[Rfam]
Shown here is an 86-nucleotide RNA sequence from Portunus trituberculatus, a member of the family "Selenocysteine transfer RNA".
RNA sequence: GCCCAGCUGAUCCUCGGCGGUCCGGGGUGCAGGCUUCAAACCUGUAGCUGAUUGACGUCAGAGUGGUUCAACUCCACCUGCUGGGC
Numbered sequence: 001g002c003c004c005a006g007c008u009g010a011u012c013c014u015c016g017g018c019g020g021u022c023c024g025g026g027g028u029g030c031a032g033g034c035u036u037c038a039a040a041c042c043u044g045u046a047g048c049u050g051a052u053u054g055a056c057g058u059c060a061g062a063g064u065g066g067u068u069c070a071a072c073u074c075c076a077c078c079u080g081c082u083g084g085g086c
Base pairs, nucleotide, nucleotide: 001086002085003084004083005082006081007080009078012027013026014025015024016023017022028046029045030044031043032042033041048061049060050059051058052057063077064076065075066074
Background:
Taxonomically the source falls in Portunus (Eukaryota, Metazoa, Protostomia, Portunoidea).